[Rfam]
RNA sequence: UACCUAUCCAGAGAGGUGGAGGGACAGGCCCUAUGAAACCCGGCAACCAGCGCAAGCAUGGUGCCAAUACCUGCGAAUUUCUGCAAGUUCGCAAUGAUGGGAU
Number, nucleotide and partner (000 for none) at each position: 001u000002a000003c101004c100005u099006a098007u097008c096009c000010a000011g000012a000013g041014a000015g040016g039017u038018g000019g000020a000021g031022g030023g029024a000025c073026a072027g071028g070029c023030c022031c021032u000033a000034u000035g000036a000037a000038a017039c016040c015041c013042g065043g064044c063045a062046a000047c061048c060049a000050g057051c056052g000053c000054a000055a000056g051057c050058a000059u000060g048061g047062u045063g044064c043065c042066a000067a000068u000069a095070c028071c027072u026073g025074c091075g090076a089077a088078u087079u086080u000081c000082u000083g000084c000085a000086a079087g078088u077089u076090c075091g074092c000093a000094a000095u069096g008097a007098u006099g005100g004101g003102a000103u000
RNA: SAM riboswitch aptamer (S box leader)
Organism: Acetobacterium paludosum